[Rfam]
RNA sequence: UGUCUCCUCCAACACCUUCUAGGUUUGGAUUUAAGCCCGCGAAUAGCGGGCUUUUUUUU
Number, nucleotide and partner (000 for none) at each position: 001u000002g000003u000004c000005u000006c000007c000008u029009c028010c027011a026012a025013c023014a000015c000016c000017u000018u000019c000020u000021a000022g000023g013024u000025u012026u011027g010028g009029a008030u000031u000032u000033a000034a052035g051036c050037c049038c048039g047040c046041g000042a000043a000044u000045a000046g040047c039048g038049g037050g036051c035052u034053u000054u000055u000056u000057u000058u000059u000
Betaproteobacteria toxic small RNA: a 59-nucleotide RNA from Parundibacterium terreum. On this family, see Sass et al., Sci Rep 2017: "Identification of small RNAs abundant in Burkholderia cenocepacia biofilms reveal putative regulators with a potential role in carbon and iron metabolism". A search with the family's covariance model found it, with a score of 50 bits. Rfam describes the family as follows. Overexpression in amino aid rich medium attenuates growth, suggesting role in repressing amino acid intake and metabolism. The base pairs follow the family's consensus structure, which was predicted with WAR. The organism belongs to Parundibacterium, within Bacteria.